[Rfam]
RNA: ZMP/ZTP riboswitch aptamer (pfl RNA motif)
RNA sequence: UUUGGUGUGUGCAACUGGCGUAAACGUGGAGAACCACGAGGGAGCACAUAUUCAUAACGCCGUACGCCUGGGCAAAGUAU
Numbered sequence: 001u002u003u004g005g006u007g008u009g010u011g012c013a014a015c016u017g018g019c020g021u022a023a024a025c026g027u028g029g030a031g032a033a034c035c036a037c038g039a040g041g042g043a044g045c046a047c048a049u050a051u052u053c054a055u056a057a058c059g060c061c062g063u064a065c066g067c068c069u070g071g072g073c074a075a076a077g078u079a080u
Stems, first nucleotide, its partner, number of pairs: 004052009015041002017068005026037004059073003